[Rfam]
RNA sequence: GCUGAUCCAUGAUGACAUCAUUUUAACAUGUGGACUGCUGGAUGAAAUAUGCGGAUAUGGGACUGAGAUCACCA
Numbered sequence: 001g002c003u004g005a006u007c008c009a010u011g012a013u014g015a016c017a018u019c020a021u022u023u024u025a026a027c028a029u030g031u032g033g034a035c036u037g038c039u040g041g042a043u044g045a046a047a048u049a050u051g052c053g054g055a056u057a058u059g060g061g062a063c064u065g066a067g068a069u070c071a072c073c074a
Stems, first nucleotide, its partner, number of pairs: 001073001003071003

Small nucleolar RNA SNORD99: a 74-nucleotide sequence from Austrofundulus limnaeus. Pairs were carried over by alignment from the consensus structure, which was predicted with RNAalifold. Gene Ontology terms of the family: nucleolus and RNA processing. The family's RNA type in Rfam is C/D-box small nucleolar RNA. The organism belongs to Austrofundulus, within Eukaryota.